Rfam assigns this 365-nucleotide sequence from Paracandidimonas soli to the family "transfer-messenger RNA". NCBI's taxonomy places the organism under Bacteria, Pseudomonadati, Betaproteobacteria, Alcaligenaceae, Paracandidimonas. A search with the family's covariance model found it, with a score of 202 bits.
[Rfam]
RNA sequence: GGGGUCGAUCCGGAUUCGACGUGGGUCGCGAAGCAGAACAGGGCAUGUCGAGCACCAGUAAGCUCGUAAAUCCACUGGAACACUACAAACGCCAACGACGAGCGUUUCGCUCUGGCCGCUUAAGCGGUGAGCCGCUGCACUGAUUUGUCCUUGGGUCAGGUGGGGUAAAACCCACAGCAGCGUCAUCUACAAGGAAUCGGGUCUGGCCAGGUCACUGGGCUAUGCCUUAAAUCAGUGUGAAUCGCCAAGGAAGGGCCUGCUGGUUGGCACGCUCCAAGGUUAAAACUCAAAAUUAACCGGAUAAACAUGUAGAACUGUCUGUAGAGGGCUUGCGGACGGGGGUUCAAUUCCCCCCGACUCCACCA
Numbered sequence: 001g002g003g004g005u006c007g008a009u010c011c012g013g014a015u016u017c018g019a020c021g022u023g024g025g026u027c028g029c030g031a032a033g034c035a036g037a038a039c040a041g042g043g044c045a046u047g048u049c050g051a052g053c054a055c056c057a058g059u060a061a062g063c064u065c066g067u068a069a070a071u072c073c074a075c076u077g078g079a080a081c082a083c084u085a086c087a088a089a090c091g092c093c094a095a096c097g098a099c100g101a102g103c104g105u106u107u108c109g110c111u112c113u114g115g116c117c118g119c120u121u122a123a124g125c126g127g128u129g130a131g132c133c134g135c136u137g138c139a140c141u142g143a144u145u146u147g148u149c150c151u152u153g154g155g156u157c158a159g160g161u162g163g164g165g166u167a168a169a170a171c172c173c174a175c176a177g178c179a180g181c182g183u184c185a186u187c188u189a190c191a192a193g194g195a196a197u198c199g200g201g202u203c204u205g206g207c208c209a210g211g212u213c214a215c216u217g218g219g220c221u222a223u224g225c226c227u228u229a230a231a232u233c234a235g236u237g238u239g240a241a242u243c244g245c246c247a248a249g250g251a252a253g254g255g256c257c258u259g260c261u262g263g264u265u266g267g268c269a270c271g272c273u274c275c276a277a278g279g280u281u282a283a284a285a286c287u288c289a290a291a292a293u294u295a296a297c298c299g300g301a302u303a304a305a306c307a308u309g310u311a312g313a314a315c316u317g318u319c320u321g322u323a324g325a326g327g328g329c330u331u332g333c334g335g336a337c338g339g340g341g342g343u344u345c346a347a348u349u350c351c352c353c354c355c356g357a358c359u360c361c362a363c364c365a
Stems, first nucleotide, its partner, number of pairs: 001361007020334008033322004038318004044309005049066005055078005112131002115128005133182006140159005148195006200226003204222002210242001212240004244280003249275003255268003260300003338354005
Dot-bracket structure: (((((((............((((((((.....((((.((((..((((((((((.[[[[[..))))).......]]]]].................................((.(((((....))))).)).((((((.(((((...[[[[[[.))))).................)))))).......]]]]]]....[[[.[[....(.((((.....]].]]]..........)))).).(((..(((...(((..[[[...)))....)))..))).................]]]....))))).....))))))))....))))))))...(((((.......))))))))))))....